[Rfam]
Nucleotides: 124
Base pairs, nucleotide, nucleotide: 010037012035015034016033017032018031019030020029062118063117064116065115066114067113068112069111070110071109072108081102082101083100084099085098086097087096088095089094
Number, partner (000 for none) and nucleotide at each position: 001000u002000a003000a004000g005000a006000a007000u008000g009000g010037u011000u012035g013000c014000c015034u016033g017032c018031u019030u020029c021000a022000u023000u024000u025000u026000g027000u028000g029020g030019a031018a032017g033016u034015a035012c036000u037010g038000c039000c040000a041000u042000u043000a044000u045000c046000c047000u048000g049000c050000u051000g052000a053000a054000a055000g056000a057000a058000a059000a060000u061000c062118c063117u064116g065115u066114g067113u068112u069111g070110a071109u072108u073000a074000u075000g076000u077000u078000c079000g080000a081102u082101u083100u084099u085098g086097c087096c088095u089094u090000u091000a092000u093000g094089a095088g096087g097086g098085u099084a100083a101082a102081a103000u104000g105000a106000c107000a108072g109071a110070u111069u112068g113067a114066c115065a116064u117063g118062g119000a120000c121000a122000a123000u124000u